[Rfam]
RNA sequence: CAAUCGCCAACUGGAGAGAGAGAUGUGAAUCUCCACCGAAGGGGCAAGCAAUUUAGGUUGCGUAAACUCUCAGGUAAAAAGGACAGAGGGAGUGGC
Numbered sequence: 001c002a003a004u005c006g007c008c009a010a011c012u013g014g015a016g017a018g019a020g021a022g023a024u025g026u027g028a029a030u031c032u033c034c035a036c037c038g039a040a041g042g043g044g045c046a047a048g049c050a051a052u053u054u055a056g057g058u059u060g061c062g063u064a065a066a067c068u069c070u071c072a073g074g075u076a077a078a079a080a081g082g083a084c085a086g087a088g089g090g091a092g093u094g095g096c
Stems, first nucleotide, its partner, number of pairs: 007090002011086003020033004035075003038071002042069003048063002

Rfam assigns this 96-nucleotide sequence from Wohlfahrtiimonas chitiniclastica to the family "Glycine riboswitch aptamer".
The source organism's lineage runs through Bacteria, Pseudomonadati, Gammaproteobacteria, Ignatzschineriaceae and Wohlfahrtiimonas chitiniclastica.
Pairs were carried over by alignment from the consensus structure.
Its family is annotated with glycine biosynthetic process in the Gene Ontology.